Source information:
A member of the RNA family "Archaeal small subunit ribosomal RNA" from Halonotius pteroides, 600 nucleotides of a longer RNA. Its Rfam clan is "SSU clan". Lineage of the source: Archaea > Methanobacteriati > Methanobacteriota > Haloferacaceae > Halonotius.
RNA sequence: UGGCGGGGGAGCACUACAACCGGAGGAGCCUGCGGUUUAAUUGGACUCAACGCCGGACAUCUCACCAGCCCCGACAUCAGUAAUGACAGUCAUGUUGACGACAUCCACUCGAGCUGAUGAGAGGAGGUGCAUGGCCGCCGUCAGCUCGUACCGUGAGGCAUCCUGUUAAGUCAGGCAACGAGCGAGAUCCACGUUCCUAAUUGCCAGCACCAUCGCACGAUGGGUGGGUACAUUAGGAAGACUGCCAGUGCUAAACUGGAGGAAGGAAUGGGCAACGGUAGGUCAGUAUGCCCCGAAUGGGCUGGGCAACACGCGGGCUACAAUGGUCAGGACAACGGGUUCCAACGCUGAGAAGCGACGGCAAUCUCGCAAACCUGGUCGUAGUUCGGAUUGCGGGCUGAAACUCGCCCGCAUGAAGCUGGAUUCGGUAGUAAUCGCGUGUCAGCAGCGCGCGGUGAAUACGUCCCUGCUCCUUGCACACACCGCCCGUCAAAGCACCCGAGUGAGGUCCGGAUGAAGCCCUGUCACCAGGGUUGAAUCUGGGCUUCGCAAGGGGGCUUAAGUCGUAACAAGGUAGCCGUAGGGGAAUCUGCGGCUGGA
Numbered sequence: 001u002g003g004c005g006g007g008g009g010a011g012c013a014c015u016a017c018a019a020c021c022g023g024a025g026g027a028g029c030c031u032g033c034g035g036u037u038u039a040a041u042u043g044g045a046c047u048c049a050a051c052g053c054c055g056g057a058c059a060u061c062u063c064a065c066c067a068g069c070c071c072c073g074a075c076a077u078c079a080g081u082a083a084u085g086a087c088a089g090u091c092a093u094g095u096u097g098a099c100g101a102c103a104u105c106c107a108c109u110c111g112a113g114c115u116g117a118u119g120a121g122a123g124g125a126g127g128u129g130c131a132u133g134g135c136c137g138c139c140g141u142c143a144g145c146u147c148g149u150a151c152c153g154u155g156a157g158g159c160a161u162c163c164u165g166u167u168a169a170g171u172c173a174g175g176c177a178a179c180g181a182g183c184g185a186g187a188u189c190c191a192c193g194u195u196c197c198u199a200a201u202u203g204c205c206a207g208c209a210c211c212a213u214c215g216c217a218c219g220a221u222g223g224g225u226g227g228g229u230a231c232a233u234u235a236g237g238a239a240g241a242c243u244g245c246c247a248g249u250g251c252u253a254a255a256c257u258g259g260a261g262g263a264a265g266g267a268a269u270g271g272g273c274a275a276c277g278g279u280a281g282g283u284c285a286g287u288a289u290g291c292c293c294c295g296a297a298u299g300g301g302c303u304g305g306g307c308a309a310c311a312c313g314c315g316g317g318c319u320a321c322a323a324u325g326g327u328c329a330g331g332a333c334a335a336c337g338g339g340u341u342c343c344a345a346c347g348c349u350g351a352g353a354a355g356c357g358a359c360g361g362c363a364a365u366c367u368c369g370c371a372a373a374c375c376u377g378g379u380c381g382u383a384g385u386u387c388g389g390a391u392u393g394c395g396g397g398c399u400g401a402a403a404c405u406c407g408c409c410c411g412c413a414u415g416a417a418g419c420u421g422g423a424u425u426c427g428g429u430a431g432u433a434a435u436c437g438c439g440u441g442u443c444a445g446c447a448g449c450g451c452g453c454g455g456u457g458a459a460u461a462c463g464u465c466c467c468u469g470c471u472c473c474u475u476g477c478a479c480a481c482a483c484c485g486c487c488c489g490u491c492a493a494a495g496c497a498c499c500c501g502a503g504u505g506a507g508g509u510c511c512g513g514a515u516g517a518a519g520c521c522c523u524g525u526c527a528c529c530a531g532g533g534u535u536g537a538a539u540c541u542g543g544g545c546u547u548c549g550c551a552a553g554g555g556g557g558c559u560u561a562a563g564u565c566g567u568a569a570c571a572a573g574g575u576a577g578c579c580g581u582a583g584g585g586g587a588a589u590c591u592g593c594g595g596c597u598g599g600a
Base pairs, nucleotide, nucleotide: 001480002479003477004476005475007474008473009472010471011470012469013468016464017463020428021427022426023425024424025321027319028318029317030316031315032314033313034312035310036309041056042055043054044053065305066304067303068302069301070300071299075119076118077117078116080114081113088109089108090107092104093103094102123294124293126292127291128290129289132288133287134283135282136281137279138278139277140276144183145182146181147180148179149178151158152157162175163174164173165172189271190270191269194239195238196237197236198235199234200233204228205227208226209225210224211222212221213220214219242262243261245259246258247257248256249255325380326379327378328377329376330375331374337368338367339366342361343360346357347356348355349354387418392413393412394411395410396409397408398407434456435455436454437453438452439451440450441449483573485570488566489565491563493560494559495558496557498555499554500553503550504549505548506547507546508545509544510543511542512541513540514539515538518535519534520533521532522531523530524529575598576597577596578595579594580593581592582591583590584589
The literature on the family includes a 2002 paper in BMC Bioinformatics by Cannone et al., "The comparative RNA web (CRW) site: an online database of comparative sequence and structure information for ribosomal, intron, and other RNAs".
Rfam links the family to the GO terms ribosome and structural constituent of ribosome.